Record summary:
Rfam assigns this 46-nucleotide sequence from Pelecanus crispus to the family "Histone 3' UTR stem-loop". For this family Rfam cites "The sequence of the stem and flanking sequences at the 3' end of histone mRNA are critical determinants for the binding of the stem-loop binding protein" (Williams and Marzluff, Nucleic Acids Res, 1995). Rfam describes the family as follows. The mRNAs of metazoan histone genes lack a poly-A tail. 3' end processing occurs at a site between a highly conserved stem-loop (modelled by this family) and a purine rich region around 20 nts downstream (the histone downstream element, or HDE). Gene Ontology term of the family: mRNA 3'-end processing by stem-loop binding and cleavage.
RNA sequence: CCAAAGGCUCUUUUAAGAGCCACCAAUAUUUUCAAGAUUUUUUUUU
Numbered sequence: 001c002c003a004a005a006g007g008c009u010c011u012u013u014u015a016a017g018a019g020c021c022a023c024c025a026a027u028a029u030u031u032u033c034a035a036g037a038u039u040u041u042u043u044u045u046u
Base pairs, nucleotide, nucleotide: 006021007020008019009018010017011016